[Rfam]
Nucleotides: 126
Stems, first nucleotide, its partner, number of pairs: 007113001009111001011077004016071001017032005040070006083107004088101004
Number, partner (000 for none) and nucleotide at each position: 001000u002000c003000g004000c005000a006000u007113g008000c009111c010000a011077a012076c013075g014074g015000g016071g017032g018031c019030u020029c021028g022000c023000a024000c025000c026000a027000g028021c029020g030019g031018g032017c033000u034000g035000a036000g037000a038000g039000g040070a041069c042068g043067g044066c045065u046000a047000g048000c049000c050000c051000a052000u053000u054000c055000c056000g057000g058000g059000c060000g061000u062000c063000a064000g065045g066044g067043c068042c069041g070040u071016c072000g073000a074014c075013c076012g077011u078000a079000u080000g081000a082000a083107c084106c085105u086104g087000a088101c089100c090099g091098g092000g093000u094000a095000a096000u097000g098091c099090c100089g101088g102000c103000g104086u105085a106084g107083g108000g109000a110000g111009g112000a113007u114000u115000c116000a117000a118000a119000u120000g121000u122000c123000a124000c125000c126000u